A member of the RNA family "tRNA" from Aspergillus versicolor, 93 nucleotides long. The base pairs follow the family's consensus structure, which is taken from published work. Lineage of the source: Eukaryota > saccharomyceta > Pezizomycotina > Aspergillaceae > Aspergillus versicolor. The family's RNA type in Rfam is transfer RNA. Rfam describes the family as follows. Transfer RNA (tRNA) molecules are approximately 80 nucleotides in length. Their secondary structure includes four short double-helical elements and three loops (D, anti-codon, and T loops). A search with the family's covariance model found it, with a score of 49 bits.
RNA sequence: GGGGUUAUAGCUCAGCGGGAGUAGCGUUCGACUGAAGUUCAACUUCUUUCAUCCUUAAUCGAAAGGUCCCCGGUUCAAUCCCGGGUGACCCCA
Numbered sequence: 001g002g003g004g005u006u007a008u009a010g011c012u013c014a015g016c017g018g019g020a021g022u023a024g025c026g027u028u029c030g031a032c033u034g035a036a037g038u039u040c041a042a043c044u045u046c047u048u049u050c051a052u053c054c055u056u057a058a059u060c061g062a063a064a065g066g067u068c069c070c071c072g073g074u075u076c077a078a079u080c081c082c083g084g085g086u087g088a089c090c091c092c093a
Stems, first nucleotide, its partner, number of pairs: 001092007010025003027063005069085005